[Rfam]
RNA sequence: GUUGUAAUGUGUGCAUAGUUUCUAUCUAUGACUGGUAGCAGUGUCUGUCUGUGUUUUGCAUUCAGAUCUUGUUAUCCACACAGAUGUCAUGCAGCCAAAGAGUAACUUGGGAUCAUAGUACUGGUCUAGUGUUGUCUGUUAUGACACAUCUACCACUGGCCAGCCUCCAAAUUCCCGCACACAG
Dot-bracket structure: ............((((............((..(((((((((.(((((..(((.....)))..))))).)))))).)))..))......))))...............(((((........((((((.((((.(((.(......).))).....)))))))))).........))))).......
Numbered sequence: 001g002u003u004g005u006a007a008u009g010u011g012u013g014c015a016u017a018g019u020u021u022c023u024a025u026c027u028a029u030g031a032c033u034g035g036u037a038g039c040a041g042u043g044u045c046u047g048u049c050u051g052u053g054u055u056u057u058g059c060a061u062u063c064a065g066a067u068c069u070u071g072u073u074a075u076c077c078a079c080a081c082a083g084a085u086g087u088c089a090u091g092c093a094g095c096c097a098a099a100g101a102g103u104a105a106c107u108u109g110g111g112a113u114c115a116u117a118g119u120a121c122u123g124g125u126c127u128a129g130u131g132u133u134g135u136c137u138g139u140u141a142u143g144a145c146a147c148a149u150c151u152a153c154c155a156c157u158g159g160c161c162a163g164c165c166u167c168c169a170a171a172u173u174c175c176c177g178c179a180c181a182c183a184g
Stems, first nucleotide, its partner, number of pairs: 013092004029082002033078003036074006043067005050060003108177005121163006128157004133148003137144001

Rfam assigns this 184-nucleotide RNA sequence from Prolemur simus to the family "Small nucleolar RNA SNORA23". A search with the family's covariance model found it, with a score of 187 bits. Rfam 15.1 lists 1,092 matches to the family in 632 species. The members of this family belong to the H/ACA class of snoRNAs which are thought to guide the sites of modification of uridines to pseudouridines.